[Rfam]
RNA sequence: GAAUUGUUUCAGGGGGAGGUGUAAGUCCUCACCGGCGGUAAUGAGUUUUAUACUACGAGUCCGCGAGCUGAAAAGCAGAAUGGGUCAGAUUCCCAUACCGACGGUAUAGUCCGGAUGAAAGAAACAGGCA
Numbered sequence: 001g002a003a004u005u006g007u008u009u010c011a012g013g014g015g016g017a018g019g020u021g022u023a024a025g026u027c028c029u030c031a032c033c034g035g036c037g038g039u040a041a042u043g044a045g046u047u048u049u050a051u052a053c054u055a056c057g058a059g060u061c062c063g064c065g066a067g068c069u070g071a072a073a074a075g076c077a078g079a080a081u082g083g084g085u086c087a088g089a090u091u092c093c094c095a096u097a098c099c100g101a102c103g104g105u106a107u108a109g110u111c112c113g114g115a116u117g118a119a120a121g122a123a124a125c126a127g128g129c130a
Stems, first nucleotide, its partner, number of pairs: 004127007017029003031110002033100002035064004059098002067076003080096005102113003
RNA: FMN riboswitch aptamer (RFN element)